[Rfam]
RNA: mir-92 microRNA precursor family
RNA sequence: CUUUCUGUGCAGGUUGGGAGGGGUAGCAAUGCUCUGCACUUGUGUGGUAUUGCACUUGUCCCGGCCUGUUGAGGAAGU
Numbered sequence: 001c002u003u004u005c006u007g008u009g010c011a012g013g014u015u016g017g018g019a020g021g022g023g024u025a026g027c028a029a030u031g032c033u034c035u036g037c038a039c040u041u042g043u044g045u046g047g048u049a050u051u052g053c054a055c056u057u058g059u060c061c062c063g064g065c066c067u068g069u070u071g072a073g074g075a076a077g078u
Base pairs, nucleotide, nucleotide: 004074005073006072009069010068011067012066013065014064016062017061018060019059022056023055024054026053027052028051029050030049031048032047033046